[Rfam]
RNA: Lysine riboswitch aptamer
Organism: Cytobacillus dafuensis
RNA sequence: AGUGAAGAUAGAGGUGCGAACUUCAAUAGUAAAUGCUUGGAGAAGAAUGGGCUUCAAUGAAAAGCUUUGAAAGGGAAUGUUUGCCGAAGUGGAGAAAGUCUCAUCACUUUCUUUGCUGGUUUUGUAUUGAAUAAAUGCAAGAUUGUCAAGACAAAUUCGUCUUGGAGAGCUAUCACACUG
Numbered sequence: 001a002g003u004g005a006a007g008a009u010a011g012a013g014g015u016g017c018g019a020a021c022u023u024c025a026a027u028a029g030u031a032a033a034u035g036c037u038u039g040g041a042g043a044a045g046a047a048u049g050g051g052c053u054u055c056a057a058u059g060a061a062a063a064g065c066u067u068u069g070a071a072a073g074g075g076a077a078u079g080u081u082u083g084c085c086g087a088a089g090u091g092g093a094g095a096a097a098g099u100c101u102c103a104u105c106a107c108u109u110u111c112u113u114u115g116c117u118g119g120u121u122u123u124g125u126a127u128u129g130a131a132u133a134a135a136u137g138c139a140a141g142a143u144u145g146u147c148a149a150g151a152c153a154a155a156u157u158c159g160u161c162u163u164g165g166a167g168a169g170c171u172a173u174c175a176c177a178c179u180g
Base pairs, nucleotide, nucleotide: 007174008173009172010171011170016084017083018082019081020080021079022077023076024075032068033067035065036064037063038062088117089116090115091114092113093112094111095110096109097108098107099106118144119143120142121141122140123139124138125137126136127135128134146165147164148163149162150161151160152159